[Rfam]
This 381-nucleotide RNA from Rhodosalinus sediminis belongs to the Rfam family "Bacterial RNase P class A". From the family's description: Ribonuclease P (RNase P) is a ubiquitous endoribonuclease, found in archaea, bacteria and eukarya as well as chloroplasts and mitochondria. By type it is a ribozyme. The family's consensus secondary structure is taken from published work.
RNA sequence: GCGGAGGGCCGGAUGGCCGCGGCGGUCGCACGCCGAGGAAAGUCCGGACUCCAGGGAGCGACGGUGCCGGGUAACGCCCGGGCGGAGAGAUCCGACGGAAAGCGCCGCAGAAAACAGACCGCCCGCGCCGCGCGCGGGUCAGGGUGAAACGGUGGGGUAAGAGCCCACCGGGGUCCCGGCGACGGGACCCGCACGGCAAGCCCCACCGGGAGCAAUGCCGAAUAGGGACCUCGCGCGGGGCGCCGCCCCGCAGGGCCGCUCCCGCCCGAGAGGUCCGGGUUGGCAGCGUGAGCGCCGGAGCGAUCCGGCGCCCAGACGAAUGGUCAUCCAGGGGGCGUGCGCGUCCCCGGACAGGAUCCGGCUUACAGGCCCUCCGCGCAA
Numbered sequence: 001g002c003g004g005a006g007g008g009c010c011g012g013a014u015g016g017c018c019g020c021g022g023c024g025g026u027c028g029c030a031c032g033c034c035g036a037g038g039a040a041a042g043u044c045c046g047g048a049c050u051c052c053a054g055g056g057a058g059c060g061a062c063g064g065u066g067c068c069g070g071g072u073a074a075c076g077c078c079c080g081g082g083c084g085g086a087g088a089g090a091u092c093c094g095a096c097g098g099a100a101a102g103c104g105c106c107g108c109a110g111a112a113a114a115c116a117g118a119c120c121g122c123c124c125g126c127g128c129c130g131c132g133c134g135c136g137g138g139u140c141a142g143g144g145u146g147a148a149a150c151g152g153u154g155g156g157g158u159a160a161g162a163g164c165c166c167a168c169c170g171g172g173g174u175c176c177c178g179g180c181g182a183c184g185g186g187a188c189c190c191g192c193a194c195g196g197c198a199a200g201c202c203c204c205a206c207c208g209g210g211a212g213c214a215a216u217g218c219c220g221a222a223u224a225g226g227g228a229c230c231u232c233g234c235g236c237g238g239g240g241c242g243c244c245g246c247c248c249c250g251c252a253g254g255g256c257c258g259c260u261c262c263c264g265c266c267c268g269a270g271a272g273g274u275c276c277g278g279g280u281u282g283g284c285a286g287c288g289u290g291a292g293c294g295c296c297g298g299a300g301c302g303a304u305c306c307g308g309c310g311c312c313c314a315g316a317c318g319a320a321u322g323g324u325c326a327u328c329c330a331g332g333g334g335g336c337g338u339g340c341g342c343g344u345c346c347c348c349g350g351a352c353a354g355g356a357u358c359c360g361g362c363u364u365a366c367a368g369g370c371c372c373u374c375c376g377c378g379c380a381a
Base pairs, nucleotide, nucleotide: 001377002376003375004374005373006372007371008370009369010368011366012328013327014326015325016324017323018322020035021034022033023032024031040364041363042362044361045360046359047358048357049212050211051210052209058261060259062208063207064206065205066204067081068080069079070078071077082096083094084093085092086091097203098202102201103200104197105196106195119143120142121139122138123137124136125135126134127133128132151169152168153167154166155165156164170192171190172189173188174187175186176185177184178183216285217284218283219282226276227275228274229273230272231271253267254266255265256264292311293310294309295308296307297306298305299304